Description
This 80-nucleotide RNA sequence from Flavobacterium cheongpyeongense belongs to the Rfam family "Flavo-1 RNA". Taxonomically the source falls in Flavobacterium (Bacteria, Flavobacteriia, Flavobacteriales, Flavobacteriaceae). Rfam 15.1 lists 7,497 matches to the family in 411 species. It is annotated as a small RNA.
RNA sequence: CCCUAGCCCCGAUAGUAGUGGAAAUCCUUUUGCUGGCUUCUUUAGCCGGCAAAAGAUUGAAACGGAUAGCGGGAUUAGCU
Numbered sequence: 001c002c003c004u005a006g007c008c009c010c011g012a013u014a015g016u017a018g019u020g021g022a023a024a025u026c027c028u029u030u031u032g033c034u035g036g037c038u039u040c041u042u043u044a045g046c047c048g049g050c051a052a053a054a055g056a057u058u059g060a061a062a063c064g065g066a067u068a069g070c071g072g073g074a075u076u077a078g079c080u
Stems, first nucleotide, its partner, number of pairs: 009072003013068002018063002023058004029053010